RNA: mir-8834 microRNA precursor family
Organism: Vulpes vulpes
RNA sequence: AAGGACAACAGUGGCGGCGGCCAGCUCUGGAGCCCUGCAUUCAGCUCCUGCAGUAACUACGGAGCUCUCUGUCUGCAGGGGUCUGGAUGCUCCCAAGGUGGG
Numbered sequence: 001a002a003g004g005a006c007a008a009c010a011g012u013g014g015c016g017g018c019g020g021c022c023a024g025c026u027c028u029g030g031a032g033c034c035c036u037g038c039a040u041u042c043a044g045c046u047c048c049u050g051c052a053g054u055a056a057c058u059a060c061g062g063a064g065c066u067c068u069c070u071g072u073c074u075g076c077a078g079g080g081g082u083c084u085g086g087a088u089g090c091u092c093c094c095a096a097g098g099u100g101g102g
Stems, first nucleotide, its partner, number of pairs: 001088001003084003006080001013073005019068002023066007031058001035053003
Dot-bracket structure: (.((((......(((((.((..(((((((.(...(((.............)))....).))))))))))))))......).)))...)..............